Shown here is a 208-nucleotide part of an RNA from Fusarium piperis, a member of the family "Ascomycota telomerase RNA". Clan: Telomerase clan. The literature on the family includes a 2013 paper in Nucleic Acids Res by Qi et al., "The common ancestral core of vertebrate and fungal telomerase RNAs". It is annotated as a non-coding RNA gene. Taxonomically the source falls in Fusarium solani species complex (Eukaryota, Opisthokonta, saccharomyceta, Pezizomycotina). A search with the family's covariance model found it, with a score of 359 bits.
RNA sequence: UCCCUCACAGUUCUCCGACUCACGUUUUCCGCAAGGAAUGUCUAUCGCAGGCCCCCUUCCCAUCUGGUUAACCGCAAUAUGCCGCUCUCGAACCUGUACCAGGAUCUCGUUAUGCCGCAGCUGGAUUAUUGUGGAUGCACCGCGAUCUGUAGAGGUCGUACCAGGGCAGAAGGGUAACGCGUUUCGGAACUUAACCCUAAGAAGAUAU
Numbered sequence: 001u002c003c004c005u006c007a008c009a010g011u012u013c014u015c016c017g018a019c020u021c022a023c024g025u026u027u028u029c030c031g032c033a034a035g036g037a038a039u040g041u042c043u044a045u046c047g048c049a050g051g052c053c054c055c056c057u058u059c060c061c062a063u064c065u066g067g068u069u070a071a072c073c074g075c076a077a078u079a080u081g082c083c084g085c086u087c088u089c090g091a092a093c094c095u096g097u098a099c100c101a102g103g104a105u106c107u108c109g110u111u112a113u114g115c116c117g118c119a120g121c122u123g124g125a126u127u128a129u130u131g132u133g134g135a136u137g138c139a140c141c142g143c144g145a146u147c148u149g150u151a152g153a154g155g156u157c158g159u160a161c162c163a164g165g166g167c168a169g170a171a172g173g174g175u176a177a178c179g180c181g182u183u184u185c186g187g188a189a190c191u192u193a194a195c196c197c198u199a200a201g202a203a204g205a206u207a208u
Stems, first nucleotide, its partner, number of pairs: 009191003015187004